[Rfam]
The record is a 90-nucleotide RNA sequence from Cucumis sativus, which matches "MIR397 microRNA precursor family" in Rfam. Its family is annotated with miRNA-mediated post-transcriptional gene silencing and RISC complex in the Gene Ontology. The family has 7 seed sequences and 496 matches in Rfam 15.1. The family's consensus secondary structure was predicted with WAR. The source organism's lineage runs through Eukaryota, Euphyllophyta, Mesangiospermae, Pentapetalae and Cucumis.
RNA sequence: UGAAGAUACGUCAUUGAGUGCAGCGUUGAUGUCAAACUUAUUUCAAAAUUCUAACUUUUCCCAUCAGCGCUUCAUUCAAUCACGUUUCUU
Number, nucleotide and partner (000 for none) at each position: 001u000002g000003a000004a000005g000006a087007u000008a085009c084010g083011u082012c000013a080014u079015u078016g077017a076018g075019u074020g073021c000022a071023g070024c069025g068026u067027u066028g065029a000030u063031g062032u000033c000034a000035a000036a000037c000038u000039u000040a000041u000042u000043u000044c000045a000046a000047a000048a000049u000050u000051c000052u000053a000054a000055c000056u000057u000058u000059u000060c000061c000062c031063a030064u000065c028066a027067g026068c025069g024070c023071u022072u000073c020074a019075u018076u017077c016078a015079a014080u013081c000082a011083c010084g009085u008086u000087u006088c000089u000090u000